[Rfam]
RNA sequence: CUGCAUGACACGGGGUGUCCCGCCGAACGGCGGGGCUGAGACAACACCCGACGAACCUGAUCCAGUUCAUACCGGCGAAGGGAUGUCAGCGCAGUGCCUG
Numbered sequence: 001c002u003g004c005a006u007g008a009c010a011c012g013g014g015g016u017g018u019c020c021c022g023c024c025g026a027a028c029g030g031c032g033g034g035g036c037u038g039a040g041a042c043a044a045c046a047c048c049c050g051a052c053g054a055a056c057c058u059g060a061u062c063c064a065g066u067u068c069a070u071a072c073c074g075g076c077g078a079a080g081g082g083a084u085g086u087c088a089g090c091g092c093a094g095u096g097c098c099u100g
Stems, first nucleotide, its partner, number of pairs: 006088005011050004016044001017036007056081003062075002065072001
Rfam assigns this 100-nucleotide RNA sequence from Vreelandella subglaciescola to the family "TPP riboswitch aptamer (THI element)". The source organism's lineage runs through Bacteria, Pseudomonadati, Gammaproteobacteria, Halomonadaceae and Vreelandella.